[Rfam]
RNA sequence: ACAGGUUGGUGGCGCACUUCCCUCUUGCGGGCGGUGUAAUCGCGCAUAACUGUUAGCAGAAUCAUGCAGAUCGCCAGGCCCGCUUAUUCAGCGGGUUUUUUUAU
Numbered sequence: 001a002c003a004g005g006u007u008g009g010u011g012g013c014g015c016a017c018u019u020c021c022c023u024c025u026u027g028c029g030g031g032c033g034g035u036g037u038a039a040u041c042g043c044g045c046a047u048a049a050c051u052g053u054u055a056g057c058a059g060a061a062u063c064a065u066g067c068a069g070a071u072c073g074c075c076a077g078g079c080c081c082g083c084u085u086a087u088u089c090a091g092c093g094g095g096u097u098u099u100u101u102u103a104u
Base pairs, nucleotide, nucleotide: 009043010042011041012040014037015036016035017034018033020031021030022029077097078096079095080094081093082092083091
The record is a 104-nucleotide RNA sequence from Affinibrenneria salicis, which matches "Tryptophan operon leader" in Rfam. For this family Rfam cites "Attenuation in amino acid biosynthetic operons" (Kolter and Yanofsky, Annu Rev Genet, 1982). The family's RNA type in Rfam is cis-regulatory leader. The base pairs follow the family's consensus structure, which is taken from published work. Gene Ontology terms of the family: tryptophan biosynthetic process and transcriptional attenuation by ribosome. Lineage of the source: Bacteria > Pseudomonadati > Enterobacterales > Pectobacteriaceae > Affinibrenneria. From the family's description: At least 6 amino acid operons are known to be regulated by attenuation.